Rfam assigns this 395-nucleotide RNA from Pelagimonas phthalicica to the family "Bacterial RNase P class A". NCBI's taxonomy places the organism under Bacteria, Pseudomonadati, Pseudomonadota, Alphaproteobacteria, Pelagimonas. Its family is annotated with ribonuclease P activity, tRNA processing and dimeric ribonuclease P complex in the Gene Ontology. A reference for the family is Brown (1999), "The Ribonuclease P Database", Nucleic Acids Res.

RNA sequence: GUGGAAGACUGGACGGCCGCACCCGAAAGGGUGAGGAAAGUCCGGACUCGCCAAAGCAUCGGUGCCGGGUAACGCCCGGGCAGAGCAAUCUGACGGAGAGCGCCACAGAAAACAGACCGCCGCAUUUCGAUGCGGUAAGGGUGAAACGGUGGGGUAAGAGCCCACCGGGGGCAUGGCAACAUGGCCCGCAUGGCAAGCCCCACCGGGAGCAAUGCCAAAUAGGAACCUCGCGUCCGGCUGAUCCGCUUGCGGAUAUCGGGGCAGGGCGGCUUUGGCCUGAGAGGUUCGGGUUGGCAGCAAGAGUCUCGUGGCAACGCGGGGCCCAGAUGAAUGGUCGUCGAGCCCGGGGGAGACCCUUGGGGGAACAGAAUCCGGCUUAUAGGUCUUCCACGCGU
Numbered sequence: 001g002u003g004g005a006a007g008a009c010u011g012g013a014c015g016g017c018c019g020c021a022c023c024c025g026a027a028a029g030g031g032u033g034a035g036g037a038a039a040g041u042c043c044g045g046a047c048u049c050g051c052c053a054a055a056g057c058a059u060c061g062g063u064g065c066c067g068g069g070u071a072a073c074g075c076c077c078g079g080g081c082a083g084a085g086c087a088a089u090c091u092g093a094c095g096g097a098g099a100g101c102g103c104c105a106c107a108g109a110a111a112a113c114a115g116a117c118c119g120c121c122g123c124a125u126u127u128c129g130a131u132g133c134g135g136u137a138a139g140g141g142u143g144a145a146a147c148g149g150u151g152g153g154g155u156a157a158g159a160g161c162c163c164a165c166c167g168g169g170g171g172c173a174u175g176g177c178a179a180c181a182u183g184g185c186c187c188g189c190a191u192g193g194c195a196a197g198c199c200c201c202a203c204c205g206g207g208a209g210c211a212a213u214g215c216c217a218a219a220u221a222g223g224a225a226c227c228u229c230g231c232g233u234c235c236g237g238c239u240g241a242u243c244c245g246c247u248u249g250c251g252g253a254u255a256u257c258g259g260g261g262c263a264g265g266g267c268g269g270c271u272u273u274g275g276c277c278u279g280a281g282a283g284g285u286u287c288g289g290g291u292u293g294g295c296a297g298c299a300a301g302a303g304u305c306u307c308g309u310g311g312c313a314a315c316g317c318g319g320g321g322c323c324c325a326g327a328u329g330a331a332u333g334g335u336c337g338u339c340g341a342g343c344c345c346g347g348g349g350g351a352g353a354c355c356c357u358u359g360g361g362g363g364a365a366c367a368g369a370a371u372c373c374g375g376c377u378u379a380u381a382g383g384u385c386u387u388c389c390a391c392g393c394g395u
Stems, first nucleotide, its partner, number of pairs: 001391010011380001012339007020033005038378003042375005047209003051206001055272002060205005065079005080094001081092004095200002100198002102194003117140002119136007148166006167189001168187003172183004213296004223287006263278003267274001303322008